This 127-nucleotide RNA from Nesterenkonia sedimenti belongs to the Rfam family "FMN riboswitch aptamer (RFN element)". Taxonomically the source falls in Nesterenkonia (Bacteria, Bacillati, Actinomycetota, Micrococcales).

[Rfam]
RNA sequence: CACGCGCUCACGGGAUCGGUGAAAAUCCGAACCGGCGGUUACAGUCCGCGACCCCCUCGCCGUCCGAGGGGUCGAGCUGGUGGAAUUCCAGCGCCGACAGUCAGAGUCUGGAUGGGAGUAGCGCGAG
Numbered sequence: 001c002a003c004g005c006g007c008u009c010a011c012g013g014g015a016u017c018g019g020u021g022a023a024a025a026u027c028c029g030a031a032c033c034g035g036c037g038g039u040u041a042c043a044g045u046c047c048g049c050g051a052c053c054c055c056c057u058c059g060c061c062g063u064c065c066g067a068g069g070g071g072u073c074g075a076g077c078u079g080g081u082g083g084a085a086u087u088c089c090a091g092c093g094c095c096g097a098c099a100g101u102c103a104g105a106g107u108c109u110g111g112a113u114g115g116g117a118g119u120a121g122c123g124c125g126a127g
Stems, first nucleotide, its partner, number of pairs: 003125006017029003031107002033096002035049004044094002053071002076092005098110003